[Rfam]
RNA sequence: CGGUGAGGUAGAGGUGCAUUUAAUAUAAGUAAUCAAUCGGAGUAUGACAUCGCCUGAUGAUUGAUGAAAGGAUUAGAUGCCGAAGCGUAAUAAGCGUCCAUCUUAUUGCUGCUGGGAUGUUCCCUGAAUAAGGGGCAGACUGUCAUGCUUGUUUUAACCAAGUAUGGAGAACUACUGAUCGA
Numbered sequence: 001c002g003g004u005g006a007g008g009u010a011g012a013g014g015u016g017c018a019u020u021u022a023a024u025a026u027a028a029g030u031a032a033u034c035a036a037u038c039g040g041a042g043u044a045u046g047a048c049a050u051c052g053c054c055u056g057a058u059g060a061u062u063g064a065u066g067a068a069a070g071g072a073u074u075a076g077a078u079g080c081c082g083a084a085g086c087g088u089a090a091u092a093a094g095c096g097u098c099c100a101u102c103u104u105a106u107u108g109c110u111g112c113u114g115g116g117a118u119g120u121u122c123c124c125u126g127a128a129u130a131a132g133g134g135g136c137a138g139a140c141u142g143u144c145a146u147g148c149u150u151g152u153u154u155u156a157a158c159c160a161a162g163u164a165u166g167g168a169g170a171a172c173u174a175c176u177g178a179u180c181g182a
Base pairs, nucleotide, nucleotide: 007176008175009174010173011172016080017079018078019077020076021075022074023073024072032065033064034063035062036061037060038059039058084113085112086111087110088108089107090106091105092104093103094102114141115140118137119136120135121134122133123132143167144166145165146164147163148162149161